Shown here is a 179-nucleotide RNA from Methylomusa anaerophila, a member of the family "6S / SsrS RNA".
A search with the family's covariance model found it, with a score of 107 bits.
Taxonomically the source falls in Methylomusa (Bacteria, Bacillati, Negativicutes, Sporomusaceae).
For this family Rfam cites "6S RNA regulates E. coli RNA polymerase activity" (Wassarman and Storz, Cell, 2000).
The family has 150 seed sequences and 5,006 matches in Rfam 15.1.
RNA sequence: UUAGCCCUGCUGUGUGCGUGUAAAGCCUAAUGUUUUGAGCCAACACAUUUACUAAGGGAGCUUGUCUCUGACUAUGGCGUGUAAGCCUCUGUGCCUGGGGGUAACACAAAAUAAUCAGGCGGGCACCCACCUGCCGAGGGCAGGUUCAAAACACGGGCCUACGGCAUGGUGGGGAUUAU
Numbered sequence: 001u002u003a004g005c006c007c008u009g010c011u012g013u014g015u016g017c018g019u020g021u022a023a024a025g026c027c028u029a030a031u032g033u034u035u036u037g038a039g040c041c042a043a044c045a046c047a048u049u050u051a052c053u054a055a056g057g058g059a060g061c062u063u064g065u066c067u068c069u070g071a072c073u074a075u076g077g078c079g080u081g082u083a084a085g086c087c088u089c090u091g092u093g094c095c096u097g098g099g100g101g102u103a104a105c106a107c108a109a110a111a112u113a114a115u116c117a118g119g120c121g122g123g124c125a126c127c128c129a130c131c132u133g134c135c136g137a138g139g140g141c142a143g144g145u146u147c148a149a150a151a152c153a154c155g156g157g158c159c160u161a162c163g164g165c166a167u168g169g170u171g172g173g174g175a176u177u178a179u
Stems, first nucleotide, its partner, number of pairs: 003176001005174011017163003031153004036148006056128003060124006067118001069117003073113003081105002086101004
Dot-bracket structure: ..(.(((((((((((.(((...........((((.((((((..............(((.((((((.(.(((.(((.....((...((((........))))..)).....))).)))))))))).)))..............)))))).)))).......)))))))))))))).)...